[Rfam]
RNA sequence: AGACCGCAACAGGGGCGUCCGCCACGCGCGGGCUGAGAAGGACCCUUCGAACCUGACCCGGAUCAUGCCGGCGGAGGAAGUUGCGGAGACGCGCCC
Numbered sequence: 001a002g003a004c005c006g007c008a009a010c011a012g013g014g015g016c017g018u019c020c021g022c023c024a025c026g027c028g029c030g031g032g033c034u035g036a037g038a039a040g041g042a043c044c045c046u047u048c049g050a051a052c053c054u055g056a057c058c059c060g061g062a063u064c065a066u067g068c069c070g071g072c073g074g075a076g077g078a079a080g081u082u083g084c085g086g087a088g089a090c091g092c093g094c095c096c
Base pairs, nucleotide, nucleotide: 006084007083008082009081010080011046012045013044014043016040017033018032019031020030021029052077053076054075058071059070060069061068
The family of this 96-nucleotide RNA sequence from Roseivivax jejudonensis is "TPP riboswitch aptamer (THI element)". Pairs were carried over by alignment from the consensus structure, which is taken from published work. The organism belongs to Roseivivax, within Bacteria. Vitamin B(1) in its active form thiamin pyrophosphate (TPP) is an essential coenzyme that is synthesised by coupling of pyrimidine and thiazole moieties in bacteria.